[Rfam]
RNA sequence: GGGGACCUCUGCCGAGGGCCCUAUACCCAGGCCGAAAGGCCCACACAUAGCGGGGCGACAAGCCCUGCAAAGCUAACGGAAGACAGAAA
Numbered sequence: 001g002g003g004g005a006c007c008u009c010u011g012c013c014g015a016g017g018g019c020c021c022u023a024u025a026c027c028c029a030g031g032c033c034g035a036a037a038g039g040c041c042c043a044c045a046c047a048u049a050g051c052g053g054g055g056c057g058a059c060a061a062g063c064c065c066u067g068c069a070a071a072g073c074u075a076a077c078g079g080a081a082g083a084c085a086g087a088a089a
Stems, first nucleotide, its partner, number of pairs: 001022004006018003031068002034065001
A member of the RNA family "L2-Alphaproteobacteria ribosomal protein leader" from Tropicimonas sediminicola, 89 nucleotides long. The organism belongs to Tropicimonas, within Bacteria. It is annotated as a cis-regulatory leader. The base pairs follow the family's consensus structure, which is taken from published work.